[Rfam]
Shown here is a 73-nucleotide sequence from Halanaerobium salsuginis, a member of the family "tRNA". From the family's description: Transfer RNA (tRNA) molecules are approximately 80 nucleotides in length. It scores 72 bits against the family's covariance model.
RNA sequence: GGUGGGAUAGCUCAGUCGGUAGAGCAGAGGAUUGAAAAUCCUCGUGUCGACAGUUCGAUUCUGUCUCCCACCA
Numbered sequence: 001g002g003u004g005g006g007a008u009a010g011c012u013c014a015g016u017c018g019g020u021a022g023a024g025c026a027g028a029g030g031a032u033u034g035a036a037a038a039u040c041c042u043c044g045u046g047u048c049g050a051c052a053g054u055u056c057g058a059u060u061c062u063g064u065c066u067c068c069c070a071c072c073a
Stems, first nucleotide, its partner, number of pairs: 001072007010025004027043005049065005